Small Cajal body specific RNA 3: a 136-nucleotide sequence from Promerops cafer. Rfam 15.1 lists 642 matches to the family in 535 species. A search with the family's covariance model found it, with a score of 98 bits. Its Rfam clan is "SCARNA3 clan". Rfam describes the family as follows. scaRNAs are a specific class of small nuclear RNAs which localise to the Cajal bodies and guide the modification of RNA polymerase II transcribed spliceosomal RNAs U1, U2, U4, U5 and U12. The organism belongs to Promerops, within Eukaryota. For this family Rfam cites "RNomics: an experimental approach that identifies 201 candidates for novel, small, non-messenger RNAs in mouse" (Huttenhofer et al., EMBO J, 2001).

[Rfam]
RNA sequence: GCUGGGACCAGUUGGGACCAGUCAUGGGCAAAAUAAAUAUGUUUUUGUCCACUGUUGCAGUCUUCCUAGAGCAAAGUGGAGGUCUCUGUCUGGUUUAGGACAGCCAGCUAAAUCAGGUCGUUCCCCUCCGCACACG
Numbered sequence: 001g002c003u004g005g006g007a008c009c010a011g012u013u014g015g016g017a018c019c020a021g022u023c024a025u026g027g028g029c030a031a032a033a034u035a036a037a038u039a040u041g042u043u044u045u046u047g048u049c050c051a052c053u054g055u056u057g058c059a060g061u062c063u064u065c066c067u068a069g070a071g072c073a074a075a076g077u078g079g080a081g082g083u084c085u086c087u088g089u090c091u092g093g094u095u096u097a098g099g100a101c102a103g104c105c106a107g108c109u110a111a112a113u114c115a116g117g118u119c120g121u122u123c124c125c126c127u128c129c130g131c132a133c134a135c136g
Stems, first nucleotide, its partner, number of pairs: 004066003009060001011058002025051005078129005086120001088118003092114007